[Rfam]
RNA: Small nucleolar RNA SNORA65
Organism: Mola mola
RNA sequence: CCCGCCACUACACCUGUCUGUCAGAGUGACCGAGUGUAAUCCAGUGGAGGCUCAGAGGAACACAGCUUUAGGAAACAGGGCUGCCCAGUAUGGUGGGCCGCUCUGUGCCGAAAAGUCUGGAACACGC
Number, nucleotide and partner (000 for none) at each position: 001c000002c000003c000004g000005c047006c046007a045008c044009u043010a000011c000012a000013c000014c000015u000016g000017u000018c034019u033020g031021u029022c028023a000024g000025a000026g000027u000028g022029a021030c000031c020032g000033a019034g018035u000036g000037u000038a000039a000040u000041c000042c000043a009044g008045u007046g006047g005048a000049g000050g000051c000052u000053c000054a000055g000056a000057g000058g000059a000060a000061c000062a000063c119064a118065g117066c115067u114068u113069u112070a000071g109072g108073a000074a000075a000076c105077a104078g103079g102080g101081c100082u000083g000084c097085c096086c095087a000088g000089u000090a000091u000092g000093g000094u000095g086096g085097g084098c000099c000100g081101c080102u079103c078104u077105g076106u000107g000108c072109c071110g000111a000112a069113a068114a067115g066116u000117c065118u064119g063120g000121a000122a000123c000124a000125c000126g000127c000